This 105-nucleotide RNA from Candidatus Cardinium hertigii belongs to the Rfam family "Bacteroidales small SRP". It is annotated as a non-coding RNA gene. The literature on the family includes a 2020 paper in Nat Commun by Ryan et al., "A high-resolution transcriptome map identifies small RNA regulation of metabolism in the gut microbe Bacteroides thetaiotaomicron". A search with the family's covariance model found it, with a score of 77 bits.

RNA sequence: UUGCUCCUGACAAGCCAGUACGGCUAGCUCCCAUUGAAUCCACCAGGUCUGGAAAGAAGCAAAGGUAAAAUGGUUGUAGCGGCGCGAUACUUGGCUUGUUUUUUU
Numbered sequence: 001u002u003g004c005u006c007c008u009g010a011c012a013a014g015c016c017a018g019u020a021c022g023g024c025u026a027g028c029u030c031c032c033a034u035u036g037a038a039u040c041c042a043c044c045a046g047g048u049c050u051g052g053a054a055a056g057a058a059g060c061a062a063a064g065g066u067a068a069a070a071u072g073g074u075u076g077u078a079g080c081g082g083c084g085c086g087a088u089a090c091u092u093g094g095c096u097u098g099u100u101u102u103u104u105u
Stems, first nucleotide, its partner, number of pairs: 009100007017091004021086002023083002